[Rfam]
Background
MIR408 microRNA precursor family: a 119-nucleotide sequence from Salix viminalis. A reference for the family is Mica et al. (2009), "High throughput approaches reveal splicing of primary microRNA transcripts and tissue specific expression of mature microRNAs in Vitis vinifera", BMC Genomics.
RNA sequence: AAAUGGGGAUGGGUAAAGCCUGGGAACAGGCGGAGCAUGGAUGGAGCUCCUAACAGAAAUACCUGUUUUGGCUCUACCCAUGCACUGCCUCUUCCCUGGCUUGUGCCUUCUUUUUCUCC
Numbered sequence: 001a002a003a004u005g006g007g008g009a010u011g012g013g014u015a016a017a018g019c020c021u022g023g024g025a026a027c028a029g030g031c032g033g034a035g036c037a038u039g040g041a042u043g044g045a046g047c048u049c050c051u052a053a054c055a056g057a058a059a060u061a062c063c064u065g066u067u068u069u070g071g072c073u074c075u076a077c078c079c080a081u082g083c084a085c086u087g088c089c090u091c092u093u094c095c096c097u098g099g100c101u102u103g104u105g106c107c108u109u110c111u112u113u114u115u116c117u118c119c
Stems, first nucleotide, its partner, number of pairs: 016102003020098001022096005028090006035083006044074002
The family's consensus secondary structure was predicted with WAR. The organism belongs to Salix, within Eukaryota.